[Rfam]
RNA sequence: GCUUGUUCUCAGGGCAGGGUGAAAUUCCCGACCGGCGGUGAUCCGUUCCACGGAACGGCAAGCCCGCGAGCGCCCAUCGUCCUUGCGGCGGUGGGGUCAGCAGAUCCGGUGAAACUCCGGGGCCGACCGUCACAGUCUGGAUGGAAGAGAAUGAGC
Numbered sequence: 001g002c003u004u005g006u007u008c009u010c011a012g013g014g015c016a017g018g019g020u021g022a023a024a025u026u027c028c029c030g031a032c033c034g035g036c037g038g039u040g041a042u043c044c045g046u047u048c049c050a051c052g053g054a055a056c057g058g059c060a061a062g063c064c065c066g067c068g069a070g071c072g073c074c075c076a077u078c079g080u081c082c083u084u085g086c087g088g089c090g091g092u093g094g095g096g097u098c099a100g101c102a103g104a105u106c107c108g109g110u111g112a113a114a115c116u117c118c119g120g121g122g123c124c125g126a127c128c129g130u131c132a133c134a135g136u137c138u139g140g141a142u143g144g145a146a147g148a149g150a151a152u153g154a155g156c
Stems, first nucleotide, its partner, number of pairs: 003154008017029003031136002033125002035067004062123002070101002105121005127139001129137001
RNA: FMN riboswitch aptamer (RFN element)